Rfam assigns this 93-nucleotide sequence from Canis lupus to the family "mir-8799 microRNA precursor family". Gene Ontology terms of the family: miRNA-mediated post-transcriptional gene silencing and RISC complex. The family's consensus secondary structure was predicted with RNAalifold. Rfam 15.1 lists 20,638 matches to the family in 5 species.

[Rfam]
RNA sequence: AGGGGAUUGCCGGAUCCUGGGCUGUGUCCCCUGGGCUCAGGGCUCCAGGGCCUGCGCCACUGGAAUUGCUCUCCCAGGGCCGCACAUACCCCU
Numbered sequence: 001a002g003g004g005g006a007u008u009g010c011c012g013g014a015u016c017c018u019g020g021g022c023u024g025u026g027u028c029c030c031c032u033g034g035g036c037u038c039a040g041g042g043c044u045c046c047a048g049g050g051c052c053u054g055c056g057c058c059a060c061u062g063g064a065a066u067u068g069c070u071c072u073c074c075c076a077g078g079g080c081c082g083c084a085c086a087u088a089c090c091c092c093u
Base pairs, nucleotide, nucleotide: 001093002092003091004090005089009085011082012081013080016078017077019074020073021072024069025068026067027064028063031062032059033058034057035055036054040052042051043050044049